Shown here is a 373-nucleotide RNA from Roseibium limicola, a member of the family "Alphaproteobacteria transfer-messenger RNA". Rfam describes the family as follows. Bacterial tmRNA, also known as 10Sa RNA or SsrA, is named for its dual tRNA and mRNA-like properties. Its role is to liberate the mRNA from a stalled ribosome. To accomplish this part of the tmRNA is used as a reading frame that ends in a translation stop signal. The base pairs follow the family's consensus structure, which is taken from published work. A search with the family's covariance model found it, with a score of 289 bits. The source organism's lineage runs through Bacteria, Pseudomonadota, Alphaproteobacteria, Stappiaceae and Roseibium. Gene Ontology term of the family: RNA catabolic process. The family's RNA type in Rfam is non-coding RNA gene.
[Rfam]
RNA sequence: CCUCUUUCAUUUGCCGGAACAUCAGCCUAUAUCAGGCGUGCCGGCCUGUCCGGAUAUGGCGAUAAAUGGUCAGUGAAAUAAACCUAUCGGACCCGGGGGCGGUACCCGGCGCCUCCACCCAAGCGCAUUGAAUUGCAAGGCCUUGCAAACAGUGCGUUUCGGCGGGGGCGAAAUAGGAUCGACGAGGGCGUAAAGACUGUGCUUUUGCUCGGUAUUGUACCACCGUUAUCGGGCUACUUUUGUAGUUGCAAAUGACAACUAUGCUAUGGACAACGCUGUCGCUGCGUAAUGCAGUGCCGGUAGUCCUUAAAGCCCUACUGGGUUAGCACCUGUAGGCGGGGUUCGGAGGCACCUGGCAACAGAAGCCUCCACU
Numbered sequence: 001c002c003u004c005u006u007u008c009a010u011u012u013g014c015c016g017g018a019a020c021a022u023c024a025g026c027c028u029a030u031a032u033c034a035g036g037c038g039u040g041c042c043g044g045c046c047u048g049u050c051c052g053g054a055u056a057u058g059g060c061g062a063u064a065a066a067u068g069g070u071c072a073g074u075g076a077a078a079u080a081a082a083c084c085u086a087u088c089g090g091a092c093c094c095g096g097g098g099g100c101g102g103u104a105c106c107c108g109g110c111g112c113c114u115c116c117a118c119c120c121a122a123g124c125g126c127a128u129u130g131a132a133u134u135g136c137a138a139g140g141c142c143u144u145g146c147a148a149a150c151a152g153u154g155c156g157u158u159u160c161g162g163c164g165g166g167g168g169c170g171a172a173a174u175a176g177g178a179u180c181g182a183c184g185a186g187g188g189c190g191u192a193a194a195g196a197c198u199g200u201g202c203u204u205u206u207g208c209u210c211g212g213u214a215u216u217g218u219a220c221c222a223c224c225g226u227u228a229u230c231g232g233g234c235u236a237c238u239u240u241u242g243u244a245g246u247u248g249c250a251a252a253u254g255a256c257a258a259c260u261a262u263g264c265u266a267u268g269g270a271c272a273a274c275g276c277u278g279u280c281g282c283u284g285c286g287u288a289a290u291g292c293a294g295u296g297c298c299g300g301u302a303g304u305c306c307u308u309a310a311a312g313c314c315c316u317a318c319u320g321g322g323u324u325a326g327c328a329c330c331u332g333u334a335g336g337c338g339g340g341g342u343u344c345g346g347a348g349g350c351a352c353c354u355g356g357c358a359a360c361a362g363a364a365g366c367c368u369c370c371a372c373u
Base pairs, nucleotide, nucleotide: 041053042052043051044050058209059208060207061206062205068202071199072198073197074196083188084187085186087185088184089183093109094108095107096106097105110170111169112168113167114166115165116164210225211224212223213222215236217234220232221231339354340353341352342351345370346369347368348367349366350365